A member of the RNA family "EFASI RNA" from Escherichia coli, 127 nucleotides long.
RNA sequence: AUGAAUGAUAUCAAGGCGGAUCGCCCGAUCCGGGGGAUUACCUGUUAACACAGGCGGCGGCAUUGAAUGUCCAACCGUUCCCCGUCAUACCUCAACCGCUGUCGCCCCGGCGCACAGAUAUCGUUCC
Numbered sequence: 001a002u003g004a005a006u007g008a009u010a011u012c013a014a015g016g017c018g019g020a021u022c023g024c025c026c027g028a029u030c031c032g033g034g035g036g037a038u039u040a041c042c043u044g045u046u047a048a049c050a051c052a053g054g055c056g057g058c059g060g061c062a063u064u065g066a067a068u069g070u071c072c073a074a075c076c077g078u079u080c081c082c083c084g085u086c087a088u089a090c091c092u093c094a095a096c097c098g099c100u101g102u103c104g105c106c107c108c109g110g111c112g113c114a115c116a117g118a119u120a121u122c123g124u125u126c127c
Stems, first nucleotide, its partner, number of pairs: 003126010017032006033083004041054005055077003059071005
Rfam's curators put it in the seed alignment. By type it is a small RNA.